A member of the RNA family "mir-19 microRNA precursor family" from Callorhinchus milii, 76 nucleotides long.
The family has 106 seed sequences and 2,337 matches in Rfam 15.1.
Its family is annotated with RISC complex and miRNA-mediated post-transcriptional gene silencing in the Gene Ontology.
For this family Rfam cites "miRNPs: a novel class of ribonucleoproteins containing numerous microRNAs" (Mourelatos et al., Genes Dev, 2002).
The organism belongs to Callorhinchus, within Eukaryota.
The match comes from Rfam's covariance-model search (60 bits).
The base pairs follow the family's consensus structure, which was predicted with RNAalifold.

RNA sequence: ACUCUCUGCCAGUUUUGCAGUUUUGUACUACAGGAAGAAGUGACCUGUGCAAAUCUAUGCAAAACUGGUAGGGAAC
Numbered sequence: 001a002c003u004c005u006c007u008g009c010c011a012g013u014u015u016u017g018c019a020g021u022u023u024u025g026u027a028c029u030a031c032a033g034g035a036a037g038a039a040g041u042g043a044c045c046u047g048u049g050c051a052a053a054u055c056u057a058u059g060c061a062a063a064a065c066u067g068g069u070a071g072g073g074a075a076c
Stems, first nucleotide, its partner, number of pairs: 003074017020056001022053007032046003
Dot-bracket structure: ..((((((((((((((((((.(((((((...(((.........))))))))))..).)))))))))))))))))..